[Rfam]
RNA sequence: CUAUACUCAGAUGCCUUUCAAUAAAACUUAUUGGGAGGAAUUGCCCGUCCUAGUCGCUGAAAAGCGAGGUAGAGGUAGGUUACUGCGUGAUUGUAGGAGCUGUAAUGCUAGACCUGAGAGCUUAAUUAAUUGUGUAUUAAUUUAACCUAUUU
Numbered sequence: 001c002u003a004u005a006c007u008c009a010g011a012u013g014c015c016u017u018u019c020a021a022u023a024a025a026a027c028u029u030a031u032u033g034g035g036a037g038g039a040a041u042u043g044c045c046c047g048u049c050c051u052a053g054u055c056g057c058u059g060a061a062a063a064g065c066g067a068g069g070u071a072g073a074g075g076u077a078g079g080u081u082a083c084u085g086c087g088u089g090a091u092u093g094u095a096g097g098a099g100c101u102g103u104a105a106u107g108c109u110a111g112a113c114c115u116g117a118g119a120g121c122u123u124a125a126u127u128a129a130u131u132g133u134g135u136a137u138u139a140a141u142u143u144a145a146c147c148u149a150u151u152u
Base pairs, nucleotide, nucleotide: 006118007117008116009115010114047113048112050111051110052109053108054067055066056065057064058063073152074151075150076149077148078147079146080145083096084095085094086093097123098122099121100120101119